This 133-nucleotide sequence from Neogobius melanostomus belongs to the Rfam family "mir-130 microRNA precursor family". The family has 9 seed sequences and 2,580 matches in Rfam 15.1.

[Rfam]
RNA sequence: CCUCACACACUGCCCUUAUCAUAUCGUACUAAUCUAUGCACUGACAGUGUGCACGUGUAUUAGGCCACAAGUCAUGUAGAAGGCCAAAUGUACUGAUUUAGCAGUACGAUAUGAUAAGGGCAAUGUGUGAGGG
Dot-bracket structure: (((.(((((..((((((((..(((((((((........................................................................)))))))))..))))))))..)))))..)))
Numbered sequence: 001c002c003u004c005a006c007a008c009a010c011u012g013c014c015c016u017u018a019u020c021a022u023a024u025c026g027u028a029c030u031a032a033u034c035u036a037u038g039c040a041c042u043g044a045c046a047g048u049g050u051g052c053a054c055g056u057g058u059a060u061u062a063g064g065c066c067a068c069a070a071g072u073c074a075u076g077u078a079g080a081a082g083g084c085c086a087a088a089u090g091u092a093c094u095g096a097u098u099u100a101g102c103a104g105u106a107c108g109a110u111a112u113g114a115u116a117a118g119g120g121c122a123a124u125g126u127g128u129g130a131g132g133g
Stems, first nucleotide, its partner, number of pairs: 001133003005128005012121008022111009

Description
The match comes from Rfam's covariance-model search (43 bits).